[Rfam]
RNA sequence: GCGUCAGCUUUAGCUCACUGGUUACUUCAUAGCAUCAACUUAGUUGUAAAUUCGAGCCUGUAUCACCGUGGGUGCUGCCUGGCGUCUUU
Numbered sequence: 001g002c003g004u005c006a007g008c009u010u011u012a013g014c015u016c017a018c019u020g021g022u023u024a025c026u027u028c029a030u031a032g033c034a035u036c037a038a039c040u041u042a043g044u045u046g047u048a049a050a051u052u053c054g055a056g057c058c059u060g061u062a063u064c065a066c067c068g069u070g071g072g073u074g075c076u077g078c079c080u081g082g083c084g085u086c087u088u089u
Base pairs, nucleotide, nucleotide: 002084003083004082005081006080007079013073014072015071016070019068020067021066026056027055028054
The family of this 89-nucleotide sequence from Scyliorhinus torazame is "Vault RNA".
From the family's description: This family of RNAs are found as part of the enigmatic vault ribonucleoprotein complex. The complex consists of a major vault protein (MVP), two minor vault proteins (VPARP and TEP1), and several small untranslated RNA molecules. It has been suggested that the vault complex is involved in drug resistance.
The match comes from Rfam's covariance-model search (46 bits).
On this family, see Stadler et al., Mol Biol Evol 2009: "Evolution of Vault RNAs".
The family's consensus secondary structure is taken from published work.